[Rfam]
RNA: Small nucleolar RNA SNORD70
Organism: Nasonia vitripennis
RNA sequence: UAUUUUAUUCAAUGAUGAGUUCUGUGUUUGAAAAAAUUAAUGAUGCACACAAUAUUUCGUCACUACCACUGAGAAAAUAAAAAA
Numbered sequence: 001u002a003u004u005u006u007a008u009u010c011a012a013u014g015a016u017g018a019g020u021u022c023u024g025u026g027u028u029u030g031a032a033a034a035a036a037u038u039a040a041u042g043a044u045g046c047a048c049a050c051a052a053u054a055u056u057u058c059g060u061c062a063c064u065a066c067c068a069c070u071g072a073g074a075a076a077a078u079a080a081a082a083a084a
Stems, first nucleotide, its partner, number of pairs: 001084001003082006009074002